The family of this 76-nucleotide RNA from Crocodylus porosus is "Mammalian CPEB3 ribozyme". It scores 37 bits against the family's covariance model. Lineage of the source: Eukaryota > Opisthokonta > Dipnotetrapodomorpha > Crocodylia > Crocodylus.
[Rfam]
RNA sequence: AUCGCAAGUUAAAGGCCAUAGCAGUAGUGCUCAUGGUGUAGCCCUGCCAGAGUCCACUAAAUCUGUGAAUUCUGCU
Numbered sequence: 001a002u003c004g005c006a007a008g009u010u011a012a013a014g015g016c017c018a019u020a021g022c023a024g025u026a027g028u029g030c031u032c033a034u035g036g037u038g039u040a041g042c043c044c045u046g047c048c049a050g051a052g053u054c055c056a057c058u059a060a061a062u063c064u065g066u067g068a069a070u071u072c073u074g075c076u
Stems, first nucleotide, its partner, number of pairs: 014043003020076005026070001027039003048065004053060001